[Rfam]
Shown here is a 98-nucleotide sequence from Sesamum indicum, a member of the family "Small nucleolar RNA Z152/R70/R12/". It is annotated as a C/D-box small nucleolar RNA. The family has 9 seed sequences and 604 matches in Rfam 15.1. Pairs were carried over by alignment from the consensus structure, which was predicted with PFOLD. The source organism's lineage runs through Eukaryota, Viridiplantae, Euphyllophyta, Pentapetalae and Sesamum. The literature on the family includes a 2001 paper in J Mol Biol by Barneche et al., "Identification of 66 box C/D snoRNAs in Arabidopsis thaliana: extensive gene duplications generated multiple isoforms predicting new ribosomal RNA 2'-O-methylation sites". Gene Ontology terms of the family: RNA processing and nucleolus.
RNA sequence: UAUGCAAUGAUGAGUCUAAGCACCAUUUGGUGUUUCAGGGCAGUGGAUUAAGGUCCGUGAGCCCACUGAAUUAACGACUUCUCCUUCCACUGAGCAAA
Number, nucleotide and partner (000 for none) at each position: 001u098002a000003u096004g095005c094006a000007a000008u000009g000010a000011u000012g000013a000014g000015u000016c000017u000018a000019a000020g000021c000022a000023c000024c000025a000026u000027u000028u000029g000030g000031u000032g000033u000034u000035u000036c000037a000038g000039g000040g000041c000042a000043g000044u000045g000046g000047a000048u000049u000050a000051a000052g000053g000054u000055c000056c000057g000058u000059g000060a000061g000062c000063c000064c000065a000066c000067u000068g000069a000070a000071u000072u000073a000074a000075c000076g000077a000078c000079u000080u000081c000082u000083c000084c000085u000086u000087c000088c000089a000090c000091u000092g000093a000094g005095c004096a003097a000098a001